Rfam assigns this 69-nucleotide sequence from Araneus ventricosus to the family "mir-2 microRNA precursor family".
Its family is annotated with miRNA-mediated post-transcriptional gene silencing and RISC complex in the Gene Ontology.
[Rfam]
RNA sequence: CUGCCCAUCAGAGUGGCUGUGAUUUGUUAUGACCACAAUUCAUAUCACAGCCAGCUUUGAUGAGCGGAG
Numbered sequence: 001c002u003g004c005c006c007a008u009c010a011g012a013g014u015g016g017c018u019g020u021g022a023u024u025u026g027u028u029a030u031g032a033c034c035a036c037a038a039u040u041c042a043u044a045u046c047a048c049a050g051c052c053a054g055c056u057u058u059g060a061u062g063a064g065c066g067g068a069g
Base pairs, nucleotide, nucleotide: 006062007061008060009059010058011057012056013055014053015052016051017050018049019048020047021046022045025044026043027042